[Rfam]
RNA: U2 spliceosomal RNA
RNA sequence: CUUGCUAACAAUUUGUCUCUUAGGUAUCUGUUCUUUUCAGUUUAAUCUCUGAAACGUCACUACGGUGACAUUCAAGAUUAAUCCACUCUUUGGAAACCGUGAUCAGGCCUCUGGGCUUGCUUAUGUCUGGUCGCACAGUGUCGCUCGUAUUGCACUGCCUCGGGCUGACGCGAAUAUAU
Numbered sequence: 001c002u003u004g005c006u007a008a009c010a011a012u013u014u015g016u017c018u019c020u021u022a023g024g025u026a027u028c029u030g031u032u033c034u035u036u037u038c039a040g041u042u043u044a045a046u047c048u049c050u051g052a053a054a055c056g057u058c059a060c061u062a063c064g065g066u067g068a069c070a071u072u073c074a075a076g077a078u079u080a081a082u083c084c085a086c087u088c089u090u091u092g093g094a095a096a097c098c099g100u101g102a103u104c105a106g107g108c109c110u111c112u113g114g115g116c117u118u119g120c121u122u123a124u125g126u127c128u129g130g131u132c133g134c135a136c137a138g139u140g141u142c143g144c145u146c147g148u149a150u151u152g153c154a155c156u157g158c159c160u161c162g163g164g165c166u167g168a169c170g171c172g173a174a175u176a177u178a179u
Stems, first nucleotide, its partner, number of pairs: 035054006056069005099134008112123004138171005143165005